A member of the RNA family "FMN riboswitch aptamer (RFN element)" from Anaerostipes butyraticus, 143 nucleotides long. Taxonomically the source falls in Anaerostipes (Bacteria, Bacillati, Bacillota, Lachnospirales). The family's consensus secondary structure is taken from published work.
[Rfam]
RNA sequence: CUCCAACUUCAGGGCAGAGUGAGAUAUGCGCGCAUAUCAAUUCUCGACUGGUGGUGAUGCCCUUCUGGGAUGAGUCCACGAGCUUCGGCCGAUGAGGUUAGAAUCCUCAACCAACAGUAUAGUCUGGAUGAAAGAAGUAAAGG
Numbered sequence: 001c002u003c004c005a006a007c008u009u010c011a012g013g014g015c016a017g018a019g020u021g022a023g024a025u026a027u028g029c030g031c032g033c034a035u036a037u038c039a040a041u042u043c044u045c046g047a048c049u050g051g052u053g054g055u056g057a058u059g060c061c062c063u064u065c066u067g068g069g070a071u072g073a074g075u076c077c078a079c080g081a082g083c084u085u086c087g088g089c090c091g092a093u094g095a096g097g098u099u100a101g102a103a104u105c106c107u108c109a110a111c112c113a114a115c116a117g118u119a120u121a122g123u124c125u126g127g128a129u130g131a132a133a134g135a136a137g138u139a140a141a142g143g
Stems, first nucleotide, its partner, number of pairs: 006138005017045003047123002049113002051079004074111002082089002093109005115126003